[Rfam]
RNA: mir-155 microRNA precursor family
RNA sequence: GGUUUAAUGCUAAUCGUGAUAGGGGUUUGUGUUAUUAAACACCUAUGCUGUUAGCAUUAGUCC
Numbered sequence: 001g002g003u004u005u006a007a008u009g010c011u012a013a014u015c016g017u018g019a020u021a022g023g024g025g026u027u028u029g030u031g032u033u034a035u036u037a038a039a040c041a042c043c044u045a046u047g048c049u050g051u052u053a054g055c056a057u058u059a060g061u062c063c
Stems, first nucleotide, its partner, number of pairs: 004060011020045004025040003